[Rfam]
RNA sequence: UCAGGUCCGACGUAGUAAGCGGGAAACUGCUGAAAUCAGUACCUUUAUGGAAGGAUGACUCGUACCCUGCCUUUUGGCUAAAACACUCCUUUGAUGUAGUCGCUCGGACGCUGCUUGCAUGGCACGGUUUACGCGGACCGUGUUUCAUGGGCGGUACUACUAUGCAGUUACUUUUACGCGUGAAAUCCUGCAACACUGUACAAAGGGGACAAUUUUUAAUGACAAGCG
Numbered sequence: 001u002c003a004g005g006u007c008c009g010a011c012g013u014a015g016u017a018a019g020c021g022g023g024a025a026a027c028u029g030c031u032g033a034a035a036u037c038a039g040u041a042c043c044u045u046u047a048u049g050g051a052a053g054g055a056u057g058a059c060u061c062g063u064a065c066c067c068u069g070c071c072u073u074u075u076g077g078c079u080a081a082a083a084c085a086c087u088c089c090u091u092u093g094a095u096g097u098a099g100u101c102g103c104u105c106g107g108a109c110g111c112u113g114c115u116u117g118c119a120u121g122g123c124a125c126g127g128u129u130u131a132c133g134c135g136g137a138c139c140g141u142g143u144u145u146c147a148u149g150g151g152c153g154g155u156a157c158u159a160c161u162a163u164g165c166a167g168u169u170a171c172u173u174u175u176a177c178g179c180g181u182g183a184a185a186u187c188c189u190g191c192a193a194c195a196c197u198g199u200a201c202a203a204a205g206g207g208g209a210c211a212a213u214u215u216u217u218a219a220u221g222a223c224a225a226g227c228g
Stems, first nucleotide, its partner, number of pairs: 004043003019030004069078003086208008095200001096160005101153005110118002121144010164199005171182001
RNA: RT-2 RNA